[Rfam]
RNA sequence: CGUUCUAGCGCGGGAGAGUUUCGUGGCGGCCAGCCACGGACGCCGAAGGAGCAAUACCUCUCCGUCAACCUCUCAGGCACCCGGACCGCGCCGGACCC
Numbered sequence: 001c002g003u004u005c006u007a008g009c010g011c012g013g014g015a016g017a018g019u020u021u022c023g024u025g026g027c028g029g030c031c032a033g034c035c036a037c038g039g040a041c042g043c044c045g046a047a048g049g050a051g052c053a054a055u056a057c058c059u060c061u062c063c064g065u066c067a068a069c070c071u072c073u074c075a076g077g078c079a080c081c082c083g084g085a086c087c088g089c090g091c092c093g094g095a096c097c098c
Stems, first nucleotide, its partner, number of pairs: 006093001008091006020040007042078003045074002049072003056065002